Shown here is a 70-nucleotide RNA from Serratia symbiotica, a member of the family "tpke11". The literature on the family includes a 2003 paper in Nucleic Acids Res by Hershberg et al., "A survey of small RNA-encoding genes in Escherichia coli". The match comes from Rfam's covariance-model search (74 bits). In Yersinia located in ICR upstream dnaJ (chaperone)gene. Gene Ontology term of the family: response to temperature stimulus.
RNA sequence: ACUGGAAACCAGCACGGGCGUCGAGGUAACUCUACGCCCGUGCAUGCAUGUUCAGGGUAAGAAAAAGAAU
Numbered sequence: 001a002c003u004g005g006a007a008a009c010c011a012g013c014a015c016g017g018g019c020g021u022c023g024a025g026g027u028a029a030c031u032c033u034a035c036g037c038c039c040g041u042g043c044a045u046g047c048a049u050g051u052u053c054a055g056g057g058u059a060a061g062a063a064a065a066a067g068a069a070u
Stems, first nucleotide, its partner, number of pairs: 012043009023032003